Notes
mir-1744 microRNA precursor family: a 73-nucleotide sequence from Anser cygnoides. The organism belongs to Anser, within Eukaryota.
RNA sequence: AGGACGCAAUGCUCCUCUGUUGAACUCAAAAGGAGAACCUGUAUUGACUUCAACAGGAGCAAGACUGAGCCAU
Numbered sequence: 001a002g003g004a005c006g007c008a009a010u011g012c013u014c015c016u017c018u019g020u021u022g023a024a025c026u027c028a029a030a031a032g033g034a035g036a037a038c039c040u041g042u043a044u045u046g047a048c049u050u051c052a053a054c055a056g057g058a059g060c061a062a063g064a065c066u067g068a069g070c071c072a073u
Base pairs, nucleotide, nucleotide: 002071003070005069007067008066010064013061015059016058017057018055019054020053021052022051023050024049026047027046028045029044031042